RNA: U7 small nuclear RNA
RNA sequence: UAGUGUUGUAGUGUGUUAGAAUUUAUCUAGCAGGCUUUCCAGUCCACCCCGGAAGGCCCCC
Numbered sequence: 001u002a003g004u005g006u007u008g009u010a011g012u013g014u015g016u017u018a019g020a021a022u023u024u025a026u027c028u029a030g031c032a033g034g035c036u037u038u039c040c041a042g043u044c045c046a047c048c049c050c051g052g053a054a055g056g057c058c059c060c061c
Base pairs, nucleotide, nucleotide: 033058034057035056036055037054038053039052040051042049